[Rfam]
RNA sequence: AAGCCAGCCACCGAAUCUUCUUGCCUGAUUAUGCUUCUACGGAAAUGUUUAAACAAACUGCUGAUAGUAAAGAAUUGUUAUGAGCCUUAAUGACACCGGGGUCAUGAAGGCCCCUGAAAGUGUCUAUAUGA
Numbered sequence: 001a002a003g004c005c006a007g008c009c010a011c012c013g014a015a016u017c018u019u020c021u022u023g024c025c026u027g028a029u030u031a032u033g034c035u036u037c038u039a040c041g042g043a044a045a046u047g048u049u050u051a052a053a054c055a056a057a058c059u060g061c062u063g064a065u066a067g068u069a070a071a072g073a074a075u076u077g078u079u080a081u082g083a084g085c086c087u088u089a090a091u092g093a094c095a096c097c098g099g100g101g102u103c104a105u106g107a108a109g110g111c112c113c114c115u116g117a118a119a120g121u122g123u124c125u126a127u128a129u130g131a
Stems, first nucleotide, its partner, number of pairs: 003062001005060003016043003072124002084111005090105001092103003
Shown here is a 131-nucleotide RNA sequence from Erinaceus europaeus, a member of the family "Small nucleolar RNA SNORA33". It is annotated as an H/ACA-box small nucleolar RNA. NCBI's taxonomy places the organism under Eukaryota, Bilateria, Deuterostomia, Mammalia, Erinaceus. ACA33 is a member of the H/ACA class of snoRNA that guide the sites of modification of uridines to pseudouridines.